[Rfam]
RNA sequence: UAAGUCCUGAUGUGUUCGUCGUAUAACCUAUUGUUUUGACCGAACAAUAUGUUAUACGGGAGCCCGGGUUUUCAGGUGGAGUACAUGCCUCGUUCACGAACAAGAGGACUUACGGAAGCUUGAAACAGGGCACCCACCUGUUGGAGAGCGGGUUCAAAACGAAGGCAUCGACGGCACGAUUGGGACUUUC
Numbered sequence: 001u002a003a004g005u006c007c008u009g010a011u012g013u014g015u016u017c018g019u020c021g022u023a024u025a026a027c028c029u030a031u032u033g034u035u036u037u038g039a040c041c042g043a044a045c046a047a048u049a050u051g052u053u054a055u056a057c058g059g060g061a062g063c064c065c066g067g068g069u070u071u072u073c074a075g076g077u078g079g080a081g082u083a084c085a086u087g088c089c090u091c092g093u094u095c096a097c098g099a100a101c102a103a104g105a106g107g108a109c110u111u112a113c114g115g116a117a118g119c120u121u122g123a124a125a126c127a128g129g130g131c132a133c134c135c136a137c138c139u140g141u142u143g144g145a146g147a148g149c150g151g152g153u154u155c156a157a158a159a160c161g162a163a164g165g166c167a168u169c170g171a172c173g174g175c176a177c178g179a180u181u182g183g184g185a186c187u188u189u190c
Stems, first nucleotide, its partner, number of pairs: 002188010012177004017173003032161004037156003040152002058135003062131004067126001069125001071124007083111001088107004